[Rfam]
RNA sequence: GAGUGCAUCCUGAUGGUGAAGGCUAAGCCUGCUAAGGGCGUAGCCGUAGGGAAACCAAAAAGCCCGCAGCUGCAUUAUGCAGUCAGGGGCAGUGUGUUUAAAGCGCGCGGAAUCAUUGGGAUGCGACCCGAAACCGGGCGAGCUACACGUGGGUAAGGUGAAGCGCCGGGAAACCGGUGUGGAGGCCUGUUAGCCAUGCUGACCUACAAAUCGCUGGCGUGACCUGUGUGUAGGGGUGAAAGUCCAAUCGAGCCCGGCGACAGCUGGUU
Numbered sequence: 001g002a003g004u005g006c007a008u009c010c011u012g013a014u015g016g017u018g019a020a021g022g023c024u025a026a027g028c029c030u031g032c033u034a035a036g037g038g039c040g041u042a043g044c045c046g047u048a049g050g051g052a053a054a055c056c057a058a059a060a061a062g063c064c065c066g067c068a069g070c071u072g073c074a075u076u077a078u079g080c081a082g083u084c085a086g087g088g089g090c091a092g093u094g095u096g097u098u099u100a101a102a103g104c105g106c107g108c109g110g111a112a113u114c115a116u117u118g119g120g121a122u123g124c125g126a127c128c129c130g131a132a133a134c135c136g137g138g139c140g141a142g143c144u145a146c147a148c149g150u151g152g153g154u155a156a157g158g159u160g161a162a163g164c165g166c167c168g169g170g171a172a173a174c175c176g177g178u179g180u181g182g183a184g185g186c187c188u189g190u191u192a193g194c195c196a197u198g199c200u201g202a203c204c205u206a207c208a209a210a211u212c213g214c215u216g217g218c219g220u221g222a223c224c225u226g227u228g229u230g231u232a233g234g235g236g237u238g239a240a241a242g243u244c245c246a247a248u249c250g251a252g253c254c255c256g257g258c259g260a261c262a263g264c265u266g267g268u269u
Stems, first nucleotide, its partner, number of pairs: 005124013021045004027039004049056002062090004069083004093107004127267002130264001134257006143233011154221001156188004163180007193218004198214002201212002235245002
A member of the RNA family "Archaeal large subunit ribosomal RNA" from Candidatus Methanohalarchaeum thermophilum, 269 nucleotides of a longer RNA.